[Rfam]
RNA: UnaL2 LINE 3' element
RNA sequence: AUCAGAAUGAACUGUAAGUCGCUUUGGAUAAAAGCGUCUGCUGAAUGACUAAAU
Numbered sequence: 001a002u003c004a005g006a007a008u009g010a011a012c013u014g015u016a017a018g019u020c021g022c023u024u025u026g027g028a029u030a031a032a033a034g035c036g037u038c039u040g041c042u043g044a045a046u047g048a049c050u051a052a053a054u
Stems, first nucleotide, its partner, number of pairs: 013043001014041003020036006